This 65-nucleotide sequence from Urocolius indicus belongs to the Rfam family "MAT2A 3'UTR stem loop A".
RNA sequence: GUUUUUUCCCCCCAUCCCCACGGGUGUAGGUUACAGAGAAGCUCGUGGGCUCUGGGGGAAAGAGC
Numbered sequence: 001g002u003u004u005u006u007u008c009c010c011c012c013c014a015u016c017c018c019c020a021c022g023g024g025u026g027u028a029g030g031u032u033a034c035a036g037a038g039a040a041g042c043u044c045g046u047g048g049g050c051u052c053u054g055g056g057g058g059a060a061a062g063a064g065c
Base pairs, nucleotide, nucleotide: 001065002064003063004062009058010057011056013054014053019047020046023043024042025041026034027033
By type it is a cis-regulatory element.